[Rfam]
RNA sequence: AUACUUACCUGGCAGGGAGUACCAGAUCAAGAGGUGGUUCACCCAGGGUGAGGCUUGGCCAUUGCACUCCGGUUGAGCUGACCUCUGCGAAUUCCCAAAUGUGGGAAUCUCGACUGCAUAAUUUUGGUAGGGGGACUGCGUUCGCGCUCUCCCGAU
Number, nucleotide and partner (000 for none) at each position: 001a000002u000003a000004c000005u000006u000007a000008c000009c000010u000011g000012g117013c116014a115015g114016g044017g043018a000019g000020u000021a038022c037023c036024a035025g000026a000027u000028c000029a000030a000031g000032a000033g000034g000035u024036g023037g022038u021039u000040c000041a000042c000043c017044c016045a086046g085047g084048g083049u000050g082051a000052g079053g078054c077055u000056u075057g074058g073059c072060c071061a000062u000063u000064g000065c000066a000067c000068u000069c000070c000071g060072g059073u058074u057075g056076a000077g054078c053079u052080g000081a000082c050083c048084u047085c046086u045087g000088c112089g111090a110091a108092u106093u105094c104095c103096c000097a000098a000099a000100u000101g000102u000103g095104g094105g093106a092107a000108u091109c000110u090111c089112g088113a000114c015115u014116g013117c012118a000119u000120a000121a000122u000123u000124u000125u000126g000127g000128u000129a000130g000131g153132g152133g151134g000135a150136c000137u000138g147139c146140g145141u000142u000143c000144g000145c140146g139147c138148u000149c000150u135151c133152c132153c131154g000155a000156u000
Rfam assigns this 156-nucleotide sequence from Etheostoma spectabile to the family "U1 spliceosomal RNA". It is annotated as a spliceosomal small nuclear RNA. A search with the family's covariance model found it, with a score of 120 bits. The organism belongs to Oligocephalus, within Eukaryota. From the family's description: U1 is a small nuclear RNA (snRNA) component of the spliceosome (involved in pre-mRNA splicing). Gene Ontology terms of the family: mRNA 5'-splice site recognition, pre-mRNA 5'-splice site binding and U1 snRNP. The base pairs follow the family's consensus structure, which is taken from published work.